[Rfam]
Nucleotides: 065
Stems, first nucleotide, its partner, number of pairs: 004062009016050004021045005027040003
Number, partner (000 for none) and nucleotide at each position: 001000g002000u003000g004062g005061u006060a007059c008058u009057c010056a011055a012054a013000c014000g015000a016050u017049g018048g019047c020000a021045g022044c023043a024042c025041u026000u027040u028039u029038g030000u031000u032000c033000u034000g035000g036000a037000a038029u039028a040027a041025a042024g043023u044022g045021c046000c047019g048018c049017c050016a051000g052000g053000u054012u055011u056010u057009g058008a059007g060006u061005g062004u063000u064000a065000c